[Rfam]
RNA: Xanthine riboswitch aptamer (NMT1 RNA)
RNA sequence: CCCAGGAGUAGAAGCGUUCAGCGUUGGCCAGCCCGGCGCCCGGAAAUUGCUCUGGAA
Numbered sequence: 001c002c003c004a005g006g007a008g009u010a011g012a013a014g015c016g017u018u019c020a021g022c023g024u025u026g027g028c029c030a031g032c033c034c035g036g037c038g039c040c041c042g043g044a045a046a047u048u049g050c051u052c053u054g055g056a057a
Stems, first nucleotide, its partner, number of pairs: 005053006015042001018044002021039007